[Rfam]
RNA: mir-1000 microRNA precursor family
RNA sequence: CCCGACCAUAUUGUCCUGUCACAGCAGUACUGCCUGGUUACUGCUGCGCCGGGACAAGCGGUCGUG
Numbered sequence: 001c002c003c004g005a006c007c008a009u010a011u012u013g014u015c016c017u018g019u020c021a022c023a024g025c026a027g028u029a030c031u032g033c034c035u036g037g038u039u040a041c042u043g044c045u046g047c048g049c050c051g052g053g054a055c056a057a058g059c060g061g062u063c064g065u066g
Stems, first nucleotide, its partner, number of pairs: 003064004012056007022046008